Rfam assigns this 348-nucleotide RNA sequence from Dialister invisus to the family "Bacterial RNase P class A".
The source organism's lineage runs through Bacteria, Bacillati, Bacillota, Veillonellaceae and Dialister invisus.
The family's RNA type in Rfam is ribozyme.
It scores 270 bits against the family's covariance model.
Rfam links the family to the GO terms ribonuclease P activity, dimeric ribonuclease P complex and tRNA processing.

RNA sequence: CGAGCAGGAAAGAUGAUUGCGGGCCGAAAGGCGUGAGGAAAGUCCGAGCUUCGCAGGGCGAGAUGCCGGAUAACAUCCGGCGGGGGCGACCCUAGGGACAGUGCCAUAGAAAAGAAAACCGCCGUGAAUAACGGUAAGGGUGGAAAGGUGCGGUAAGAGCGCACCAGCAGGCGGGAGACCGUUUGGCUUGGUAAACCCCAUCUGAAGCAAGACCGAAUAGGGAAGGAAUGACGUUGCCCGCUGACCUUCCGGGUUGAGUCGCUUGACCGAUAAAGUAAUUUACUCGGCUAGACAGAUAAUCAUCACCAUGAAAAUGGUACAGAACUCGGCUUAUUGAUUGCUCGCAAA
Number, nucleotide and partner (000 for none) at each position: 001c344002g343003a342004g341005c340006a339007g338008g000009a000010a335011a334012g304013a303014u302015g301016a300017u299018u298019g000020c035021g034022g000023g032024c031025c030026g000027a000028a000029a000030g025031g024032c023033g000034u021035g020036a000037g000038g000039a000040a332041a331042g330043u000044c329045c328046g327047a326048g325049c207050u206051u205052c204053g000054c000055a000056g239057g238058g237059c236060g000061a203062g202063a201064u200065g199066c080067c079068g078069g077070a076071u000072a000073a000074c000075a000076u070077c069078c068079g067080g066081c095082g093083g092084g091085g090086g000087c000088g000089a000090c085091c084092c083093u082094a000095g081096g198097g197098a000099c000100a000101g196102u195103g192104c191105c190106a000107u000108a000109g000110a000111a000112a000113a000114g000115a000116a000117a000118a000119c139120c138121g135122c134123c133124g132125u131126g000127a000128a000129u000130a000131a125132c124133g123134g122135u121136a000137a000138g120139g119140g000141u000142g000143g000144a000145a000146a000147g165148g164149u163150g162151c161152g160153g000154u000155a000156a000157g000158a000159g000160c152161g151162c150163a149164c148165c147166a000167g187168c185169a184170g183171g182172c181173g180174g179175g000176a000177g000178a000179c174180c173181g172182u171183u170184u169185g168186g000187c167188u000189u000190g105191g104192u103193a000194a000195a102196c101197c097198c096199c065200a064201u063202c062203u061204g052205a051206a050207g049208c000209a000210a000211g260212a259213c258214c256215g000216a000217a000218u000219a000220g000221g250222g249223a248224a247225g246226g245227a000228a000229u000230g000231a000232c000233g241234u240235u000236g059237c058238c057239c056240g234241c233242u000243g000244a000245c226246c225247u224248u223249c222250c221251g000252g000253g000254u000255u000256g214257a000258g213259u212260c211261g000262c000263u000264u000265g000266a000267c287268c286269g285270a284271u282272a281273a280274a279275g000276u000277a000278a000279u274280u273281u272282a271283c000284u270285c269286g268287g267288c000289u000290a000291g000292a000293c000294a000295g000296a000297u000298a018299a017300u016301c015302a014303u013304c012305a000306c000307c000308a000309u000310g000311a000312a000313a000314a000315u000316g000317g000318u000319a000320c000321a000322g000323a000324a000325c048326u047327c046328g045329g044330c042331u041332u040333a000334u011335u010336g000337a000338u007339u006340g005341c004342u003343c002344g001345c000346a000347a000348a000